[Rfam]
RNA sequence: GGGGGCGUUACGGAUUCGACAGGCAUAGAUUGAACAAUUAAGGCAAUUCGUAGGUUACGGCUACGUUAAAACGUUACAGUUUAAAUAUAACUGACAAAACACAAAAUAAUUCUUUCGCUUUCGCUGCUUAAAAACCAGCAGGCGUUGAUCUGUCUAGCCUCUCCCAUGGGUUAGGUUCAGGUCUUAGAUGAGUGGGAUACGUUACAAACUUCCAUCUGUAGUGCGUAAAGGAGAAUAAUCAGAUUAGCAACUAUUCAUGCCUGUUUAUUGGCUAAAUAGAAGUGAACUUGAAAUGAAUAAACUAUAAUUGUAGAAUUGAUUGUGGCAAUAUGUUUGGACGCGGGUUCGACUCCCGCCGCCUCCAUAU
Numbered sequence: 001g002g003g004g005g006c007g008u009u010a011c012g013g014a015u016u017c018g019a020c021a022g023g024c025a026u027a028g029a030u031u032g033a034a035c036a037a038u039u040a041a042g043g044c045a046a047u048u049c050g051u052a053g054g055u056u057a058c059g060g061c062u063a064c065g066u067u068a069a070a071a072c073g074u075u076a077c078a079g080u081u082u083a084a085a086u087a088u089a090a091c092u093g094a095c096a097a098a099a100c101a102c103a104a105a106a107u108a109a110u111u112c113u114u115u116c117g118c119u120u121u122c123g124c125u126g127c128u129u130a131a132a133a134a135c136c137a138g139c140a141g142g143c144g145u146u147g148a149u150c151u152g153u154c155u156a157g158c159c160u161c162u163c164c165c166a167u168g169g170g171u172u173a174g175g176u177u178c179a180g181g182u183c184u185u186a187g188a189u190g191a192g193u194g195g196g197a198u199a200c201g202u203u204a205c206a207a208a209c210u211u212c213c214a215u216c217u218g219u220a221g222u223g224c225g226u227a228a229a230g231g232a233g234a235a236u237a238a239u240c241a242g243a244u245u246a247g248c249a250a251c252u253a254u255u256c257a258u259g260c261c262u263g264u265u266u267a268u269u270g271g272c273u274a275a276a277u278a279g280a281a282g283u284g285a286a287c288u289u290g291a292a293a294u295g296a297a298u299a300a301a302c303u304a305u306a307a308u309u310g311u312a313g314a315a316u317u318g319a320u321u322g323u324g325g326c327a328a329u330a331u332g333u334u335u336g337g338a339c340g341c342g343g344g345u346u347c348g349a350c351u352c353c354c355g356c357c358g359c360c361u362c363c364a365u366a367u
Stems, first nucleotide, its partner, number of pairs: 001363007020336008034323008044310005049065005054077002057074003120142002123139004147183006153175008162197006202228004208222003214245001217242001247283002251279005259272003263302004268295001340356005
Source information:
This 367-nucleotide RNA from Granulicatella sp. WM01 belongs to the Rfam family "transfer-messenger RNA". Its family is annotated with RNA catabolic process in the Gene Ontology. Rfam classes the family as a non-coding RNA gene. Bacterial tmRNA, also known as 10Sa RNA or SsrA, is named for its dual tRNA and mRNA-like properties. Taxonomically the source falls in Granulicatella (Bacteria, Bacillota, Bacilli, Carnobacteriaceae).